[Rfam]
RNA sequence: GUGCAGUGAUGCUAUUAUCAACACAUCAUUCUGAAAACACGUGUGGAAGAUUUCUAACUGAGCACA
Numbered sequence: 001g002u003g004c005a006g007u008g009a010u011g012c013u014a015u016u017a018u019c020a021a022c023a024c025a026u027c028a029u030u031c032u033g034a035a036a037a038c039a040c041g042u043g044u045g046g047a048a049g050a051u052u053u054c055u056a057a058c059u060g061a062g063c064a065c066a
Stems, first nucleotide, its partner, number of pairs: 001065004